RNA sequence: AAAUAUAAUAAAGCGCCAGGACUUAGGUGAUGAAACUCAGACUAUGGUCUGAGUAAGUUCGACUAACCAAAUCACAGAUUUGGAGUAAGAUUAAUGAAACUCAGACUAUGGUCUGAGUAAGUUCCACCAACCAAAUCACAGAUUUGGGGUGUCACUUAAGUUGACGAGGAUGGGGAGUAUCGAAUCUUCGGCGGGUGCCCCACGGUACUGCACUACCGUUAAAGAUUGACAAAACCAAGGAGUAAUUUUUGGUACAAAUCAAUCAGGUGUUAAAA
Numbered sequence: 001a002a003a004u005a006u007a008a009u010a011a012a013g014c015g016c017c018a019g020g021a022c023u024u025a026g027g028u029g030a031u032g033a034a035a036c037u038c039a040g041a042c043u044a045u046g047g048u049c050u051g052a053g054u055a056a057g058u059u060c061g062a063c064u065a066a067c068c069a070a071a072u073c074a075c076a077g078a079u080u081u082g083g084a085g086u087a088a089g090a091u092u093a094a095u096g097a098a099a100c101u102c103a104g105a106c107u108a109u110g111g112u113c114u115g116a117g118u119a120a121g122u123u124c125c126a127c128c129a130a131c132c133a134a135a136u137c138a139c140a141g142a143u144u145u146g147g148g149g150u151g152u153c154a155c156u157u158a159a160g161u162u163g164a165c166g167a168g169g170a171u172g173g174g175g176a177g178u179a180u181c182g183a184a185u186c187u188u189c190g191g192c193g194g195g196u197g198c199c200c201c202a203c204g205g206u207a208c209u210g211c212a213c214u215a216c217c218g219u220u221a222a223a224g225a226u227u228g229a230c231a232a233a234a235c236c237a238a239g240g241a242g243u244a245a246u247u248u249u250u251g252g253u254a255c256a257a258a259u260c261a262a263u264c265a266g267g268u269g270u271u272a273a274a275a
Stems, first nucleotide, its partner, number of pairs: 020162008029153004171202005180191004203218005224264005235252007
RNA: glmS glucosamine-6-phosphate activated ribozyme aptamer
Organism: Clostridium tetani